[Rfam]
RNA sequence: AAAUUUUUUGUUAAACUUGACUUUAAUUUAACAUUGUGAAAAAACAUAAAAAAUGUAAAAUAAAUAAAGAUUUCGACGUCGAUGAAACAUUACUAUUUUUAUCGUUUUUUUAUUUAUUCAAUAAAACGAAAUUGAAUUUUAUCGUUCAAUUUUUAACGUUAAAAUUUUUCGCGAAUCGAUUCGAAUUAAAAACAUUGUUAAAUGAAAAAUUUGAUUAAAACGACAUAUUUAUUAAAUCAUAACGCAAAUGUUUUAAAAAAAAUUCAUGAAAAAUAAAAAUUUUCAAUAAAACAAAAAAAUAAAAUUUUUUUUGAUUUUGAUUUUUAAUGUGAAUACAAAUUAUAAAAAUGUAAUUUAUCGAUUCUUUAAUUUUUCGAAAUUUGAAAUUAAAAAUGUCAAAAAAAUCAUUACAAAAAUAAUCA
Numbered sequence: 001a002a003a004u005u006u007u008u009u010g011u012u013a014a015a016c017u018u019g020a021c022u023u024u025a026a027u028u029u030a031a032c033a034u035u036g037u038g039a040a041a042a043a044a045c046a047u048a049a050a051a052a053a054u055g056u057a058a059a060a061u062a063a064a065u066a067a068a069g070a071u072u073u074c075g076a077c078g079u080c081g082a083u084g085a086a087a088c089a090u091u092a093c094u095a096u097u098u099u100u101a102u103c104g105u106u107u108u109u110u111u112a113u114u115u116a117u118u119c120a121a122u123a124a125a126a127c128g129a130a131a132u133u134g135a136a137u138u139u140u141a142u143c144g145u146u147c148a149a150u151u152u153u154u155a156a157c158g159u160u161a162a163a164a165u166u167u168u169u170c171g172c173g174a175a176u177c178g179a180u181u182c183g184a185a186u187u188a189a190a191a192a193c194a195u196u197g198u199u200a201a202a203u204g205a206a207a208a209a210u211u212u213g214a215u216u217a218a219a220a221c222g223a224c225a226u227a228u229u230u231a232u233u234a235a236a237u238c239a240u241a242a243c244g245c246a247a248a249u250g251u252u253u254u255a256a257a258a259a260a261a262a263u264u265c266a267u268g269a270a271a272a273a274u275a276a277a278a279a280u281u282u283u284c285a286a287u288a289a290a291a292c293a294a295a296a297a298a299a300u301a302a303a304a305u306u307u308u309u310u311u312u313g314a315u316u317u318u319g320a321u322u323u324u325u326a327a328u329g330u331g332a333a334u335a336c337a338a339a340u341u342a343u344a345a346a347a348a349u350g351u352a353a354u355u356u357a358u359c360g361a362u363u364c365u366u367u368a369a370u371u372u373u374u375c376g377a378a379a380u381u382u383g384a385a386a387u388u389a390a391a392a393a394u395g396u397c398a399a400a401a402a403a404a405u406c407a408u409u410a411c412a413a414a415a416a417u418a419a420u421c422a
Base pairs, nucleotide, nucleotide: 007414008413009412010411012410013409015405017403018402020210022208023207027202028201029200030199031198032197033196036113037112038111039110040109041108042107043106044105045104046102047101048100049099050098051097052096063094065092066091067090069077117190118189120187121186127183128182129181130180135146136145137144164176165175166174167173213226215223216222227249228248229247230246232244252353253352258310259309260308261307262306264290267285268284269283270282271281272280291300315339316338317337320334321333322332323331341350342349343348365391366390367389368388369387372386373385374384375383